The family of this 77-nucleotide sequence from Sphingobium sp. YR768 is "Makes More Granules Regulator RNA (mmgR)". The literature on the family includes a 2005 paper in Genome Biol by Corbino et al., "Evidence for a second class of S-adenosylmethionine riboswitches and other regulatory RNA motifs in alpha-proteobacteria".

RNA sequence: AGAGCAGGCCUUUCAGGCAUCCUCUCCUAAAAACUUUCAGGCCGGUCCUUUUUGGAUCGGUCUUUUUUUUGGUCAAA
Numbered sequence: 001a002g003a004g005c006a007g008g009c010c011u012u013u014c015a016g017g018c019a020u021c022c023u024c025u026c027c028u029a030a031a032a033a034c035u036u037u038c039a040g041g042c043c044g045g046u047c048c049u050u051u052u053u054g055g056a057u058c059g060g061u062c063u064u065u066u067u068u069u070u071g072g073u074c075a076a077a
Base pairs, nucleotide, nucleotide: 008018009017010016011015040062041061042060043059044058045057046056047055048054